[Rfam]
RNA sequence: AGAGGAUAGCAGGGGGCCUCAGCAGAUACAUCACAGCCCCAUCAGAUUCUGGUGAAUCUGUGACUUCUGCU
Numbered sequence: 001a002g003a004g005g006a007u008a009g010c011a012g013g014g015g016g017c018c019u020c021a022g023c024a025g026a027u028a029c030a031u032c033a034c035a036g037c038c039c040c041a042u043c044a045g046a047u048u049c050u051g052g053u054g055a056a057u058c059u060g061u062g063a064c065u066u067c068u069g070c071u
Base pairs, nucleotide, nucleotide: 013040014039015038016037017036021071022070023069024068025067026066043060044059045058046057047056048055049054
This 71-nucleotide RNA from Pipistrellus kuhlii belongs to the Rfam family "Mammalian CPEB3 ribozyme". Rfam's curators write: The mammalian CPEB3 ribozyme is a self cleaving RNA located in the second intron of the CPEB3 gene which belongs to a family of genes regulating messenger RNA polyadenylation.